The family of this 58-nucleotide sequence from Rubellimicrobium roseum is "terC RNA".
RNA sequence: GCUUGGGUCCGGGCCCCUCUGGCAGCGCCGCCCGGCGCUGCGAUGUCGGACCUUCCAU
Numbered sequence: 001g002c003u004u005g006g007g008u009c010c011g012g013g014c015c016c017c018u019c020u021g022g023c024a025g026c027g028c029c030g031c032c033c034g035g036c037g038c039u040g041c042g043a044u045g046u047c048g049g050a051c052c053u054u055c056c057a058u
Stems, first nucleotide, its partner, number of pairs: 006052007022041008
Dot-bracket structure: .....(((((((.........((((((((....))))))))....)))))))......
It scores 62 bits against the family's covariance model.